A member of the RNA family "MIR2655 microRNA precursor family" from Medicago truncatula, 277 nucleotides long. Its family is annotated with RISC complex and miRNA-mediated post-transcriptional gene silencing in the Gene Ontology. A search with the family's covariance model found it, with a score of 200 bits. The source organism's lineage runs through Eukaryota, Spermatophyta, eudicotyledons, Trifolieae and Medicago. The family's consensus secondary structure was predicted with RNAalifold.
RNA sequence: UCCUUAACUAUUAAAAGUUUCGUUUCGGUCCCAUAACUUAUUUUUGGUUUUUCUUUUGGUCCCUUAACUAUUAAAAGUUUCGUUUUGGUCCCUUAACUCUAAUACAUUCAUCCUAAUAUAAAUGACCAAAGUGGUUGACGGAGGAAGAGUUAAUGGACCAAAACGAAACCAAAAAGUAAGUUAAAGGACCAAAAGGAAACUUUUAAUAGUUAAUGGACCAAAACGAAACCAAAAAGUAAGUUAAGGGACCAAAACGAAACUUUUAAUAGUUAAGGGA
Numbered sequence: 001u002c003c004u005u006a007a008c009u010a011u012u013a014a015a016a017g018u019u020u021c022g023u024u025u026c027g028g029u030c031c032c033a034u035a036a037c038u039u040a041u042u043u044u045u046g047g048u049u050u051u052u053c054u055u056u057u058g059g060u061c062c063c064u065u066a067a068c069u070a071u072u073a074a075a076a077g078u079u080u081c082g083u084u085u086u087g088g089u090c091c092c093u094u095a096a097c098u099c100u101a102a103u104a105c106a107u108u109c110a111u112c113c114u115a116a117u118a119u120a121a122a123u124g125a126c127c128a129a130a131g132u133g134g135u136u137g138a139c140g141g142a143g144g145a146a147g148a149g150u151u152a153a154u155g156g157a158c159c160a161a162a163a164c165g166a167a168a169c170c171a172a173a174a175a176g177u178a179a180g181u182u183a184a185a186g187g188a189c190c191a192a193a194a195g196g197a198a199a200c201u202u203u204u205a206a207u208a209g210u211u212a213a214u215g216g217a218c219c220a221a222a223a224c225g226a227a228a229c230c231a232a233a234a235a236g237u238a239a240g241u242u243a244a245g246g247g248a249c250c251a252a253a254a255c256g257a258a259a260c261u262u263u264u265a266a267u268a269g270u271u272a273a274g275g276g277a
Stems, first nucleotide, its partner, number of pairs: 002275007023254003027250003031246002034243010045232001047230001